[Rfam]
RNA sequence: CUCCCCGAAAUGCAUUUAGGUGCAGCCUUUGUUAAGUAUAGUAUGAGGUAGAGCGACUGAUUGGAUGCGAGGGCUUCACCGCCUAUCAAGUCCAGACAAACUCCGAAUGCGUACUAUAUAAUUACAAGGAGUGAGGGCGCGGGUGCUAAGGUCCGUGUCCGAGAGGAGAAGAAUCCAGACCACCAGCUAAGGUCCCCAAAUAACAAUUAAGUUGAACUAACGAAGUCAGAUUGCAAAGACAGCUAGGAUGUUGGCUUGGAAGCAGCCAUUCAUUUAAAGAGUGCGUAACAGCUCACUAGUCGAGGAGUUUGGCGUGGAUAAUAAUCGGGCAUAAAUUGUUUACCGAAGCUGUGGAACCAGUAAUGGUUGGUAGGGGAGCAUUCUAACGGCGUAGAAGAUGGUAGGUGACUUCUGUUGGAGCUUUUAGAAAAGCAAAU
Numbered sequence: 001c002u003c004c005c006c007g008a009a010a011u012g013c014a015u016u017u018a019g020g021u022g023c024a025g026c027c028u029u030u031g032u033u034a035a036g037u038a039u040a041g042u043a044u045g046a047g048g049u050a051g052a053g054c055g056a057c058u059g060a061u062u063g064g065a066u067g068c069g070a071g072g073g074c075u076u077c078a079c080c081g082c083c084u085a086u087c088a089a090g091u092c093c094a095g096a097c098a099a100a101c102u103c104c105g106a107a108u109g110c111g112u113a114c115u116a117u118a119u120a121a122u123u124a125c126a127a128g129g130a131g132u133g134a135g136g137g138c139g140c141g142g143g144u145g146c147u148a149a150g151g152u153c154c155g156u157g158u159c160c161g162a163g164a165g166g167a168g169a170a171g172a173a174u175c176c177a178g179a180c181c182a183c184c185a186g187c188u189a190a191g192g193u194c195c196c197c198a199a200a201u202a203a204c205a206a207u208u209a210a211g212u213u214g215a216a217c218u219a220a221c222g223a224a225g226u227c228a229g230a231u232u233g234c235a236a237a238g239a240c241a242g243c244u245a246g247g248a249u250g251u252u253g254g255c256u257u258g259g260a261a262g263c264a265g266c267c268a269u270u271c272a273u274u275u276a277a278a279g280a281g282u283g284c285g286u287a288a289c290a291g292c293u294c295a296c297u298a299g300u301c302g303a304g305g306a307g308u309u310u311g312g313c314g315u316g317g318a319u320a321a322u323a324a325u326c327g328g329g330c331a332u333a334a335a336u337u338g339u340u341u342a343c344c345g346a347a348g349c350u351g352u353g354g355a356a357c358c359a360g361u362a363a364u365g366g367u368u369g370g371u372a373g374g375g376g377a378g379c380a381u382u383c384u385a386a387c388g389g390c391g392u393a394g395a396a397g398a399u400g401g402u403a404g405g406u407g408a409c410u411u412c413u414g415u416u417g418g419a420g421c422u423u424u425u426a427g428a429a430a431a432g433c434a435a436a437u
Stems, first nucleotide, its partner, number of pairs: 001378006011024005026131001027129006036122001037118009051104001052102002058098002062094004069087002071084004135160010165176003180354004185350003191344003200341001202340006221316002225313008234304001242300005248273003253267003274278001279294001283292002355368005379432001381429006388422003397416005403410002
This 437-nucleotide part of an RNA from Parabacteroides chinchillae belongs to the Rfam family "Bacterial large subunit ribosomal RNA". Gene Ontology terms of the family: ribosome and structural constituent of ribosome. The match comes from Rfam's covariance-model search (2761 bits).